[Rfam]
RNA sequence: UCUCUUAUGCCCGGAGAAUGGCUCUUGCUUGAUAUAAGCAGUCGGACGCUGCUUGCAUGGCAUGAGGUCUGUGCUUAUCCUCAUGUUUCAUGGCUGGUCUUAUUACGCAGUCUGAGUAAGCACACAAUCUGUACAAGGAGGUUAGGGCAUAUUUUUAAGAC
Numbered sequence: 001u002c003u004c005u006u007a008u009g010c011c012c013g014g015a016g017a018a019u020g021g022c023u024c025u026u027g028c029u030u031g032a033u034a035u036a037a038g039c040a041g042u043c044g045g046a047c048g049c050u051g052c053u054u055g056c057a058u059g060g061c062a063u064g065a066g067g068u069c070u071g072u073g074c075u076u077a078u079c080c081u082c083a084u085g086u087u088u089c090a091u092g093g094c095u096g097g098u099c100u101u102a103u104u105a106c107g108c109a110g111u112c113u114g115a116g117u118a119a120g121c122a123c124a125c126a127a128u129c130u131g132u133a134c135a136a137g138g139a140g141g142u143u144a145g146g147g148c149a150u151a152u153u154u155u156u157a158a159g160a161c
Stems, first nucleotide, its partner, number of pairs: 001017004024141003028137004033133001034103005039096005048056002059087009107132004114125001
The record is a 161-nucleotide RNA sequence, which matches "RT-2 RNA" in Rfam. It is annotated as a small RNA.